[Rfam]
A member of the RNA family "Alphaproteobacterial ar14" from Stappia albiluteola, 125 nucleotides long.
Rfam classes the family as a small RNA.
Taxonomically the source falls in Stappia (Bacteria, Alphaproteobacteria, Hyphomicrobiales, Stappiaceae).
About the family: Smr14C2 was renamed NfeR1 (Nodule Formation Efficiency RNA) highly expressed in salt stress and during the symbiotic interaction on legume roots.
Pairs were carried over by alignment from the consensus structure.
RNA sequence: UCACGUUCAAAGAGGUAAUCCUCCUCCCAUACCUCUGAGCGUGCCCGGCAAGGGCAUCCUCCUCCCAGCUCUUGUCGGAAAUUGCGUCGCCCGCCGGUACCUCCUCCCACCGGCGGGCGAUCGCU
Numbered sequence: 001u002c003a004c005g006u007u008c009a010a011a012g013a014g015g016u017a018a019u020c021c022u023c024c025u026c027c028c029a030u031a032c033c034u035c036u037g038a039g040c041g042u043g044c045c046c047g048g049c050a051a052g053g054g055c056a057u058c059c060u061c062c063u064c065c066c067a068g069c070u071c072u073u074g075u076c077g078g079a080a081a082u083u084g085c086g087u088c089g090c091c092c093g094c095c096g097g098u099a100c101c102u103c104c105u106c107c108c109a110c111c112g113g114c115g116g117g118c119g120a121u122c123g124c125u
Base pairs, nucleotide, nucleotide: 008039011036012035013034014033015032016031017030046077047076048075049074050073051072052071053070054069055068087120088119089118090117091116092115093114094113095112096111097110